[Rfam]
RNA sequence: UUGCACGAUGCACCCCGGGCUUCUCUGAUCAAUCCUGUGACGAAGAACGCCCCAAUGCACGUGCUAAAUCAGACGCCGUCAGUGUUGCAGUUUAGCCUUUGUACCUUACUCUCUCAUGGCUAUAUCUGUGUCGAUUCGACGGCUACAUAC
Numbered sequence: 001u002u003g004c005a006c007g008a009u010g011c012a013c014c015c016c017g018g019g020c021u022u023c024u025c026u027g028a029u030c031a032a033u034c035c036u037g038u039g040a041c042g043a044a045g046a047a048c049g050c051c052c053c054a055a056u057g058c059a060c061g062u063g064c065u066a067a068a069u070c071a072g073a074c075g076c077c078g079u080c081a082g083u084g085u086u087g088c089a090g091u092u093u094a095g096c097c098u099u100u101g102u103a104c105c106u107u108a109c110u111c112u113c114u115c116a117u118g119g120c121u122a123u124a125u126c127u128g129u130g131u132c133g134a135u136u137c138g139a140c141g142g143c144u145a146c147a148u149a150c
Stems, first nucleotide, its partner, number of pairs: 003064005010058002017052004022046002024043002075143006083133002086130005094121003
About this RNA: The record is a 150-nucleotide RNA from Actinidia chinensis, which matches "small nucleolar RNA snoR134" in Rfam. By type it is an H/ACA-box small nucleolar RNA. On this family, see Chen and Wu, Nucleic Acids Res 2009: "Mining small RNA sequencing data: a new approach to identify small nucleolar RNAs in Arabidopsis". The family's consensus secondary structure was predicted with RNAalifold.